The record is a 280-nucleotide sequence from Anthoscopus minutus, which matches "Small Cajal body-specific RNA 7" in Rfam. By type it is a small Cajal body RNA. Lineage of the source: Eukaryota > Bilateria > Archosauria > Neognathae > Anthoscopus. On this family, see Darzacq et al., EMBO J 2002: "Cajal body-specific small nuclear RNAs: a novel class of 2'-O-methylation and pseudouridylation guide RNAs".
[Rfam]
RNA sequence: GGGAAGUGAUGACAUGGAGAUGCUUGGGUGUGUUUGGAUGUGUGUGAGCAGGGGGGAGCCACAGGCAGGCUGGGCUGGGGUUUGUGUGUGGUGUGAGGGGGCUCUCGUGGGGGCACUGAUGGCAGUGCUGAGCCAGGAGUGCAUCUGAGGCGUGUUGGGCACCUCCGGGGCCCCUCUGCAACACUGCCAGUGAUUAAAGCCCCAAAAAAAGCCCACCAGGAGAGCCCCAGGCAGCCCAAAUCUCUCCCAGGGUCCCCUGUGAUCCUGUGCUCUGAUCUCA
Numbered sequence: 001g002g003g004a005a006g007u008g009a010u011g012a013c014a015u016g017g018a019g020a021u022g023c024u025u026g027g028g029u030g031u032g033u034u035u036g037g038a039u040g041u042g043u044g045u046g047a048g049c050a051g052g053g054g055g056g057a058g059c060c061a062c063a064g065g066c067a068g069g070c071u072g073g074g075c076u077g078g079g080g081u082u083u084g085u086g087u088g089u090g091g092u093g094u095g096a097g098g099g100g101g102c103u104c105u106c107g108u109g110g111g112g113g114c115a116c117u118g119a120u121g122g123c124a125g126u127g128c129u130g131a132g133c134c135a136g137g138a139g140u141g142c143a144u145c146u147g148a149g150g151c152g153u154g155u156u157g158g159g160c161a162c163c164u165c166c167g168g169g170g171c172c173c174c175u176c177u178g179c180a181a182c183a184c185u186g187c188c189a190g191u192g193a194u195u196a197a198a199g200c201c202c203c204a205a206a207a208a209a210a211g212c213c214c215a216c217c218a219g220g221a222g223a224g225c226c227c228c229a230g231g232c233a234g235c236c237c238a239a240a241u242c243u244c245u246c247c248c249a250g251g252g253u254c255c256c257c258u259g260u261g262a263u264c265c266u267g268u269g270c271u272c273u274g275a276u277c278u279c280a
Stems, first nucleotide, its partner, number of pairs: 001279004153183005158173002162169002